Rfam assigns this 55-nucleotide RNA from Prolemur simus to the family "Antizyme RNA frameshifting stimulation element". Rfam's curators write: This family represents a structural element which is found in antizyme mRNA and is known to promote frameshifting. Antizyme genes have have two partially overlapping open reading frames, the second, which encodes the functional protein requires +1 translational frameshifting. This frameshift is stimulated by a pseudoknot present 3' of the frameshift site in the antizyme mRNA. The frameshifting efficiency is dependent on the level of polyamines in the cell, when the polyamine concentration is high frameshifting is more likely to occur which leads to an increase in the quantity of functional antizyme produced. The functional antizyme acts to reduce ornithine decarboxylase (ODC) activity which leads to a drop in polyamines present in the cell. Therefore, this family can be thought of as a biosensor for intracellular free polyamines. It scores 54 bits against the family's covariance model. The literature on the family includes a 2004 paper in J Mol Biol by Ivanov et al., "Identification of a new antizyme mRNA +1 frameshifting stimulatory pseudoknot in a subset of diverse invertebrates and its apparent absence in intermediate species". The organism belongs to Prolemur, within Eukaryota. Rfam links the family to the GO term translational frameshifting. By type it is a frameshift element.

[Rfam]
RNA sequence: UAAUGCCCCUCACCCACUGCCCAAAAUCCCCGGUGGGCGAGGGCCAGCAGGGAUC
Numbered sequence: 001u002a003a004u005g006c007c008c009c010u011c012a013c014c015c016a017c018u019g020c021c022c023a024a025a026a027u028c029c030c031c032g033g034u035g036g037g038c039g040a041g042g043g044c045c046a047g048c049a050g051g052g053a054u055c
Base pairs, nucleotide, nucleotide: 007043008042009041010040011039013037014036015035016034017033018032026054027053028052029051030050